[Rfam]
RNA: Purine riboswitch aptamer
Organism: Bittarella massiliensis
RNA sequence: ACUCGGGGUGUCGCUGGUUGCUAUAUAAUACCCGGAUAUGGCGGGUAGUUUCUACACUUCACCGUAAAUGAAGUACUAUGGCUAACUUCUCACCGGCC
Numbered sequence: 001a002c003u004c005g006g007g008g009u010g011u012c013g014c015u016g017g018u019u020g021c022u023a024u025a026u027a028a029u030a031c032c033c034g035g036a037u038a039u040g041g042c043g044g045g046u047a048g049u050u051u052c053u054a055c056a057c058u059u060c061a062c063c064g065u066a067a068a069u070g071a072a073g074u075a076c077u078a079u080g081g082c083u084a085a086c087u088u089c090u091c092a093c094c095g096g097c098c
Stems, first nucleotide, its partner, number of pairs: 018084001020082006029047006056074006